[Rfam]
RNA sequence: GGUAUAGAUACAGUUUUUGAUUACAUUCAAAAGUAUCUAUGCCGGUGAUUCUUAUUUAAAAAUAAGACCGGAUAGAAGACUAUUCGGUCUUUUUCUUUU
Dot-bracket structure: (((((((((((...((((((......))))))))))))))))).......................(((((((((....)))))))))...........
Shown here is a 99-nucleotide sequence from Weissella oryzae, a member of the family "trpB ncRNA motif". Taxonomically the source falls in Weissella oryzae (Bacteria, Bacillota, Bacilli, Weissella). The literature on the family includes a 2024 paper in Nucleic Acids Res by Narunsky et al., "The discovery of novel noncoding RNAs in 50 bacterial genomes". Rfam describes the family as follows. trpB ncRNA motif was reported as a strong cis regulatory motif candidate, with potential to be a cis regulatory riboswitch type, it have been identified in Firmicutes and Fusobacteria. The motif have been recognised upstream of an uncharacterized ABC transporter with strong homology to amino acid transporters. It is also occasionally located upstream of trpB gene, that codes for a tryptophan synthase. The match comes from Rfam's covariance-model search (62 bits). The family's RNA type in Rfam is cis-regulatory element.